[Rfam]
RNA sequence: GGCUCAUCCAGAGGGGCAGAGGGACCGGCCCAGUGAAGCCCCGGCAACCGGCGUUCGCAUUCCACGCGCGCUUGGUGCCAAUUCCGGCCCGCCGUCCGGCGGGAAAGAUGAGGA
Numbered sequence: 001g002g003c004u005c006a007u008c009c010a011g012a013g014g015g016g017c018a019g020a021g022g023g024a025c026c027g028g029c030c031c032a033g034u035g036a037a038g039c040c041c042c043g044g045c046a047a048c049c050g051g052c053g054u055u056c057g058c059a060u061u062c063c064a065c066g067c068g069c070g071c072u073u074g075g076u077g078c079c080a081a082u083u084c085c086g087g088c089c090c091g092c093c094g095u096c097c098g099g100c101g102g103g104a105a106a107g108a109u110g111a112g113g114a
Stems, first nucleotide, its partner, number of pairs: 003112006013042005021031003025087004043079004048075002050072004083106001088103006
RNA: SAM riboswitch aptamer (S box leader)
Organism: Pseudonocardia thermophila